[Rfam]
Rfam assigns this 234-nucleotide part of an RNA from uncultured bacterium AD254-A9 to the family "Bacterial large subunit ribosomal RNA". Rfam's curators put it in the seed alignment.

RNA sequence: GAGUUACUCCUCAUGUGCGAGGUUAAGGUCUUAAGGACUGUAGCCGAAGCGAAAGCGAGUCUGAAAUGGGCGACAGAGUACAUGGGGGUAGACCCGAAACCGACGCGAUCUAUCCAUGGCCAGGUUGAAGCCGGGGUAAUACCUGGUGGAGGACCGAACCGUUGUGGGUUGAAAACUGCUCGGAUGAGCUGUGGAUAGGGGUGAAAGGCCAAUCAAGCUCGGAGAUAGCUGGUU
Numbered sequence: 001g002a003g004u005u006a007c008u009c010c011u012c013a014u015g016u017g018c019g020a021g022g023u024u025a026a027g028g029u030c031u032u033a034a035g036g037a038c039u040g041u042a043g044c045c046g047a048a049g050c051g052a053a054a055g056c057g058a059g060u061c062u063g064a065a066a067u068g069g070g071c072g073a074c075a076g077a078g079u080a081c082a083u084g085g086g087g088g089u090a091g092a093c094c095c096g097a098a099a100c101c102g103a104c105g106c107g108a109u110c111u112a113u114c115c116a117u118g119g120c121c122a123g124g125u126u127g128a129a130g131c132c133g134g135g136g137u138a139a140u141a142c143c144u145g146g147u148g149g150a151g152g153a154c155c156g157a158a159c160c161g162u163u164g165u166g167g168g169u170u171g172a173a174a175a176c177u178g179c180u181c182g183g184a185u186g187a188g189c190u191g192u193g194g195a196u197a198g199g200g201g202u203g204a205a206a207g208g209c210c211a212a213u214c215a216a217g218c219u220c221g222g223a224g225a226u227a228g229c230u231g232g233u234u
Stems, first nucleotide, its partner, number of pairs: 005090003009087010021045004027039003049056002059071004093232002096229001100222004105218002110198011121186001123155004130147006159183003164179004200210003